Description: A member of the RNA family "SAM riboswitch aptamer (S box leader)" from Litorihabitans aurantiacus, 101 nucleotides long. Taxonomically the source falls in Litorihabitans (Bacteria, Bacillati, Micrococcales, Beutenbergiaceae). The match comes from Rfam's covariance-model search (52 bits).
[Rfam]
RNA sequence: GCACCAUCCAGAGCGGCCGAGAGACCUGGCUCGUCGACGCCGCAGCAACCCCCAACGGAAGCCUCCCGCGGGAAGGGUGCUCACGCCAGGACCGAUGGAGA
Numbered sequence: 001g002c003a004c005c006a007u008c009c010a011g012a013g014c015g016g017c018c019g020a021g022a023g024a025c026c027u028g029g030c031u032c033g034u035c036g037a038c039g040c041c042g043c044a045g046c047a048a049c050c051c052c053c054a055a056c057g058g059a060a061g062c063c064u065c066c067c068g069c070g071g072g073a074a075g076g077g078u079g080c081u082c083a084c085g086c087c088a089g090g091a092c093c094g095a096u097g098g099a100g101a
Stems, first nucleotide, its partner, number of pairs: 002100001004098005013043005021032003026089004044081004049077002052072002085093001

Rfam links the family to the GO term regulation of gene expression. The family's consensus secondary structure is taken from published work.